[Rfam]
RNA sequence: AUAAUUAGAAGUAGAAAGUGGCUCUCUACACACUCGAAAGAAUACCUGAGAUGCAGGAUACGCCACCCUGCCUAAUUAU
Numbered sequence: 001a002u003a004a005u006u007a008g009a010a011g012u013a014g015a016a017a018g019u020g021g022c023u024c025u026c027u028a029c030a031c032a033c034u035c036g037a038a039a040g041a042a043u044a045c046c047u048g049a050g051a052u053g054c055a056g057g058a059u060a061c062g063c064c065a066c067c068c069u070g071c072c073u074a075a076u077u078a079u
Stems, first nucleotide, its partner, number of pairs: 001079008011029005019065004031048001032043001034041002053071005

This 79-nucleotide RNA belongs to the Rfam family "skipping-rope RNA".